Shown here is a 131-nucleotide RNA sequence from Phrynocephalus forsythii, a member of the family "Small nucleolar RNA ACA64". The family's consensus secondary structure was predicted with WAR. The match comes from Rfam's covariance-model search (84 bits). Lineage of the source: Eukaryota > Deuterostomia > Vertebrata > Teleostomi > Phrynocephalus. Rfam 15.1 lists 9,537 matches to the family in 620 species.
RNA sequence: ACUGCCUGAAAAUCAUCUCUAGCCUCUGUCAGUGGCCUGGGGUGAGAUAACAGUGCACACAGCAAAGGGAGCAUUAAGCUUAUUGCCUUCUAGGACGAAAGAAGGGCAAUAAAACCCAUGUUCCUAUAUGU
Numbered sequence: 001a002c003u004g005c006c007u008g009a010a011a012a013u014c015a016u017c018u019c020u021a022g023c024c025u026c027u028g029u030c031a032g033u034g035g036c037c038u039g040g041g042g043u044g045a046g047a048u049a050a051c052a053g054u055g056c057a058c059a060c061a062g063c064a065a066a067g068g069g070a071g072c073a074u075u076a077a078g079c080u081u082a083u084u085g086c087c088u089u090c091u092a093g094g095a096c097g098a099a100a101g102a103a104g105g106g107c108a109a110u111a112a113a114a115c116c117c118a119u120g121u122u123c124c125u126a127u128a129u130g131u
Stems, first nucleotide, its partner, number of pairs: 006053003010048001013045004022036003068124001070122005080112005088103003